The record is a 128-nucleotide sequence from Carassius auratus, which matches "Small nucleolar RNA SNORA17" in Rfam. The source organism's lineage runs through Eukaryota, Chordata, Teleostomi, Cyprinidae and Carassius. Its family is annotated with nucleolus and RNA processing in the Gene Ontology. Rfam's curators write: snoRNA ACA 17 belongs to the H/ACA family of snoRNAs and is predicted to guide pseudouridylation of the 28S rRNA at positions U4659 and U4598. It shares the same host gene together with ACA43. NB This family has a high threshold value to exclude a large number of closely related sequences that do not appear to have conserved H and ACA boxes, and may be pseudogenes.
RNA sequence: UUUGCCCCAUGAGACGUAACUCUGGCAGUGAUGCCACUGUUGUGCUAAAGGUGGGCAGAAAGAAACUGGCUUGCGAUUGACCCUGCUGUCCUGUAUGGUGGACCAGGGGCUUGGAGCGAGCCCAUAUA
Numbered sequence: 001u002u003u004g005c006c007c008c009a010u011g012a013g014a015c016g017u018a019a020c021u022c023u024g025g026c027a028g029u030g031a032u033g034c035c036a037c038u039g040u041u042g043u044g045c046u047a048a049a050g051g052u053g054g055g056c057a058g059a060a061a062g063a064a065a066c067u068g069g070c071u072u073g074c075g076a077u078u079g080a081c082c083c084u085g086c087u088g089u090c091c092u093g094u095a096u097g098g099u100g101g102a103c104c105a106g107g108g109g110c111u112u113g114g115a116g117c118g119a120g121c122c123c124a125u126a127u128a
Base pairs, nucleotide, nucleotide: 002058003057004056005055006054008051010049013046015044016043017042018041019040023036024035025034026033065125068122069121070120071119072118073117074116079112080111083109084108086106088103089102090101091100
Dot-bracket structure: .(((((.(.(..(.(((((...((((......))))...))))).)..).)..)))))......(..(((((((....((..((.(.((((........))))..).)).))...)))))))..)...
Pairs were carried over by alignment from the consensus structure, which was predicted with RNAalifold. A reference for the family is Ofengand and Bakin (1997), "Mapping to nucleotide resolution of pseudouridine residues in large subunit ribosomal RNAs from representative eukaryotes, prokaryotes, archaebacteria, mitochondria and chloroplasts", J Mol Biol.